Shown here is a 132-nucleotide RNA from Candidatus Cryosericum terrychapinii, a member of the family "FMN riboswitch aptamer (RFN element)".
The organism belongs to Candidatus Cryosericum, within Bacteria.
The match comes from Rfam's covariance-model search (95 bits).

[Rfam]
RNA sequence: AGUGUUCUCUGGGGCAGGGUGAAAUCCCCGACCGGUGGUAGUAGCGAAGAGCUUAGCCCACGAGCCGCUGCGGCGGUAGGACUUGGUGUGAUUCCAGGGCCGACAGUACAGUCUGGACGGAAAGAGACGUCC
Numbered sequence: 001a002g003u004g005u006u007c008u009c010u011g012g013g014g015c016a017g018g019g020u021g022a023a024a025u026c027c028c029c030g031a032c033c034g035g036u037g038g039u040a041g042u043a044g045c046g047a048a049g050a051g052c053u054u055a056g057c058c059c060a061c062g063a064g065c066c067g068c069u070g071c072g073g074c075g076g077u078a079g080g081a082c083u084u085g086g087u088g089u090g091a092u093u094c095c096a097g098g099g100c101c102g103a104c105a106g107u108a109c110a111g112u113c114u115g116g117a118c119g120g121a122a123a124g125a126g127a128c129g130u131c132c
Stems, first nucleotide, its partner, number of pairs: 006127005017029003031112002033102002035061004056100002066076001082098005104115003
Dot-bracket structure: .....(((((......(((.......))).[[((((((.................[[))))....(.........).....(((((.......)))))]])).(((....]]))).......))))).....